[Rfam]
RNA: Rhizobiales sRNA Atu_Ti1
Nucleotides: 092
Stems, first nucleotide, its partner, number of pairs: 001018004022047004031039002049092010063082001064080006
Number, partner (000 for none) and nucleotide at each position: 001018g002017u003016c004015c005000a006000c007000g008000u009000u010000g011000c012000a013000g014000u015004g016003g017002a018001c019000c020000a021000a022047g023046c024045g025044u026000a027000a028000a029000a030000u031039c032038c033000u034000c035000c036000c037000a038032g039031g040000a041000c042000g043000a044025a045024c046023g047022c048000g049092g050091c051090g052089a053088u054087c055086g056085g057084c058083c059000a060000g061000g062000c063082u064080c065079u066078c067077g068076u069075c070000g071000u072000c073000a074000u075069g076068a077067c078066g079065a080064g081000c082063a083058g084057g085056c086055c087054g088053a089052u090051c091050g092049c